This 134-nucleotide RNA sequence from Rynchops niger belongs to the Rfam family "Small nucleolar RNA SNORA41".
[Rfam]
RNA sequence: CUCCACAGCUACUGGUCUGGAACUGUUCGGAACUGUAGCAGUUGCAGGAUUCCCUCUGUGGAAAAUAAACUGUUACAUGGUGUUAAGCUUCUUAUCAGAUCCUCUGAAAAGGACUUCCUAUGUAACAAACAAUG
Numbered sequence: 001c002u003c004c005a006c007a008g009c010u011a012c013u014g015g016u017c018u019g020g021a022a023c024u025g026u027u028c029g030g031a032a033c034u035g036u037a038g039c040a041g042u043u044g045c046a047g048g049a050u051u052c053c054c055u056c057u058g059u060g061g062a063a064a065a066u067a068a069a070c071u072g073u074u075a076c077a078u079g080g081u082g083u084u085a086a087g088c089u090u091c092u093u094a095u096c097a098g099a100u101c102c103u104c105u106g107a108a109a110a111g112g113a114c115u116u117c118c119u120a121u122g123u124a125a126c127a128a129a130c131a132a133u134g
Base pairs, nucleotide, nucleotide: 003061004060005059006058017047018046019045021043022042023041024040025039075123076122077121078120079119089113090112091111092110093109095107096106
It scores 100 bits against the family's covariance model. By type it is an H/ACA-box small nucleolar RNA. For this family Rfam cites "RNomics: an experimental approach that identifies 201 candidates for novel, small, non-messenger RNAs in mouse" (Huttenhofer et al., EMBO J, 2001). The base pairs follow the family's consensus structure, which was predicted with PFOLD. ACA41 is a member of the H/ACA class of snoRNA that guide the sites of modification of uridines to pseudouridines. Rfam 15.1 lists 676 matches to the family in 522 species.